A member of the RNA family "Bacterial large subunit ribosomal RNA" from Rubellimicrobium thermophilum, 545 nucleotides of a longer RNA. A reference for the family is Yusupov et al. (2001), "Crystal structure of the ribosome at 5.5 A resolution", Science. The organism belongs to Rubellimicrobium thermophilum, within Bacteria.
RNA sequence: CUCCGCGAAAUCUAUUUAGGUAGAGCGUCGGGUGAAUGCCUUCGGGGGUAGAGCACUGGAUGGGUGAUGGGGGCCCACAGCCUUACUGAGCCUAACCAAACUCCGAAUACCGAAGAGCACUGCCCGGCAGACAGACGGCGGGUGCUAACGUCCGUCGUCGAGAGGGAAACAACCCUGACCUCCAGCUAAGGCCCCCAAUUCACGGCUAAGUGGGAAAGCAGGUGGGACGACCAAAACAACCAGGAGGUUGGCUUAGAAGCAGCCAUCCUUUAAAGAUAGCGUAACAGCUCACUGGUCUAGACAAGUUGUCCUGCGGCGAAGAUGUAACGGGGCUCAAGCCGUGAGCCGAAGCUGAGGAUGCACCAUUGGGUGCAUGGUAGCGGAGCGUGGCGUGACAUGGGUCCGCGUCUGUGAUGCCGUCGAGGCGGAUAUGCGGGAUGGGGCAGCCCAUCGCGCCGACAUCGCCACAGGCGGCAGCGCAGACGGAGGACUCUUCGAUGAAGCCGGGGCGUGAGCCAUCCGGUGGAGAGAUCGCCAGCGAGAAU
Numbered sequence: 001c002u003c004c005g006c007g008a009a010a011u012c013u014a015u016u017u018a019g020g021u022a023g024a025g026c027g028u029c030g031g032g033u034g035a036a037u038g039c040c041u042u043c044g045g046g047g048g049u050a051g052a053g054c055a056c057u058g059g060a061u062g063g064g065u066g067a068u069g070g071g072g073g074c075c076c077a078c079a080g081c082c083u084u085a086c087u088g089a090g091c092c093u094a095a096c097c098a099a100a101c102u103c104c105g106a107a108u109a110c111c112g113a114a115g116a117g118c119a120c121u122g123c124c125c126g127g128c129a130g131a132c133a134g135a136c137g138g139c140g141g142g143u144g145c146u147a148a149c150g151u152c153c154g155u156c157g158u159c160g161a162g163a164g165g166g167a168a169a170c171a172a173c174c175c176u177g178a179c180c181u182c183c184a185g186c187u188a189a190g191g192c193c194c195c196c197a198a199u200u201c202a203c204g205g206c207u208a209a210g211u212g213g214g215a216a217a218g219c220a221g222g223u224g225g226g227a228c229g230a231c232c233a234a235a236a237c238a239a240c241c242a243g244g245a246g247g248u249u250g251g252c253u254u255a256g257a258a259g260c261a262g263c264c265a266u267c268c269u270u271u272a273a274a275g276a277u278a279g280c281g282u283a284a285c286a287g288c289u290c291a292c293u294g295g296u297c298u299a300g301a302c303a304a305g306u307u308g309u310c311c312u313g314c315g316g317c318g319a320a321g322a323u324g325u326a327a328c329g330g331g332g333c334u335c336a337a338g339c340c341g342u343g344a345g346c347c348g349a350a351g352c353u354g355a356g357g358a359u360g361c362a363c364c365a366u367u368g369g370g371u372g373c374a375u376g377g378u379a380g381c382g383g384a385g386c387g388u389g390g391c392g393u394g395a396c397a398u399g400g401g402u403c404c405g406c407g408u409c410u411g412u413g414a415u416g417c418c419g420u421c422g423a424g425g426c427g428g429a430u431a432u433g434c435g436g437g438a439u440g441g442g443g444c445a446g447c448c449c450a451u452c453g454c455g456c457c458g459a460c461a462u463c464g465c466c467a468c469a470g471g472c473g474g475c476a477g478c479g480c481a482g483a484c485g486g487a488g489g490a491c492u493c494u495u496c497g498a499u500g501a502a503g504c505c506g507g508g509g510c511g512u513g514a515g516c517c518a519u520c521c522g523g524u525g526g527a528g529a530g531a532u533c534g535c536c537a538g539c540g541a542g543a544a545u
Stems, first nucleotide, its partner, number of pairs: 001385006011024005026130001027128007036121001040115006051104001052102002057098003061094004069086001070084005134159010164175003179357004184353003190347003199344001201343006218317002222314010239296005245269003250264003270274001275290001279288002358375007386540001388537005